[Rfam]
RNA sequence: GCCCCUAUAGUUGAAACACAACCAAGAGCUUUUCACGCUCUUAAGUUUGAGUUAAAAUCUCAAUAGGAGCU
Dot-bracket structure: ((.((((..(.(........).).(((((.......))))).....(((((.......))))))))).)).

tRNA: a 71-nucleotide RNA sequence from Strongylocentrotus purpuratus. The base pairs follow the family's consensus structure, which is taken from published work. Rfam links the family to the GO term triplet codon-amino acid adaptor activity. The literature on the family includes a 1993 paper in Trends Biochem Sci by Hou, "The tertiary structure of tRNA and the development of the genetic code". By type it is a transfer RNA. Rfam's curators write: Transfer RNA (tRNA) molecules are approximately 80 nucleotides in length.